[Rfam]
RNA: epsC RNA
Organism: Weizmannia acidilactici
RNA sequence: CGGACAUGUCUCCCAUCCGUUAUCACGUGAGGCACUCGGUCAUGCUGUGGGUGUUUUUAAGCACCUUAGACGCUUGUCGUCGGAAGUAUGAUGUGAGGGCGGGUUAGAUGCCCG
Numbered sequence: 001c002g003g004a005c006a007u008g009u010c011u012c013c014c015a016u017c018c019g020u021u022a023u024c025a026c027g028u029g030a031g032g033c034a035c036u037c038g039g040u041c042a043u044g045c046u047g048u049g050g051g052u053g054u055u056u057u058u059a060a061g062c063a064c065c066u067u068a069g070a071c072g073c074u075u076g077u078c079g080u081c082g083g084a085a086g087u088a089u090g091a092u093g094u095g096a097g098g099g100c101g102g103g104u105u106a107g108a109u110g111c112c113c114g
Stems, first nucleotide, its partner, number of pairs: 001019004007034006035097004039092008049066007069081004100114005